[Rfam]
RNA sequence: GCGAUGAGCUGAGUUGUGUAAGUCGAGAAACAUUCCUUUUUGGAGCGCACUAUGUGGAGUGUGGUUUUUCGCCUCAAUACGCAAAGACGCCUGCUAUAUGCAGGCGUC
Numbered sequence: 001g002c003g004a005u006g007a008g009c010u011g012a013g014u015u016g017u018g019u020a021a022g023u024c025g026a027g028a029a030a031c032a033u034u035c036c037u038u039u040u041u042g043g044a045g046c047g048c049a050c051u052a053u054g055u056g057g058a059g060u061g062u063g064g065u066u067u068u069u070c071g072c073c074u075c076a077a078u079a080c081g082c083a084a085a086g087a088c089g090c091c092u093g094c095u096a097u098a099u100g101c102a103g104g105c106g107u108c
Base pairs, nucleotide, nucleotide: 014077015076016075018073024071025070026069027068028067029066030065031064034043035042046063047062049060050059051058086108087107088106089105090104091103092102093101094100